[Rfam]
RNA sequence: GAAGGUAUGGCCCUUCGAGGUCAGUUUGUAGGAACGGGCCUCAAACAGCCGCAAGCUGCUUCAGUACGAAAGUCUGCGGUGGUGAACGUUGCGGUUAAAAGCCGGGGAAGGACCCCGGCAUG
Numbered sequence: 001g002a003a004g005g006u007a008u009g010g011c012c013c014u015u016c017g018a019g020g021u022c023a024g025u026u027u028g029u030a031g032g033a034a035c036g037g038g039c040c041u042c043a044a045a046c047a048g049c050c051g052c053a054a055g056c057u058g059c060u061u062c063a064g065u066a067c068g069a070a071a072g073u074c075u076g077c078g079g080u081g082g083u084g085a086a087c088g089u090u091g092c093g094g095u096u097a098a099a100a101g102c103c104g105g106g107g108a109a110g111g112a113c114c115c116c117g118g119c120a121u122g
Stems, first nucleotide, its partner, number of pairs: 001016005017042006024035004046122002049094006055083002058080003062076003101119006
Rfam assigns this 122-nucleotide sequence from Linnemannia gamsii to the family "Group II catalytic intron D1-D4-2". On this family, see Bonen and Vogel, Trends Genet 2001: "The ins and outs of group II introns". The family has 144 seed sequences and 1,231 matches in Rfam 15.1. It scores 91 bits against the family's covariance model. From the family's description: Group II introns are found in rRNA, tRNA and mRNA of organelles in fungi, plants and protists, and also in mRNA in bacteria.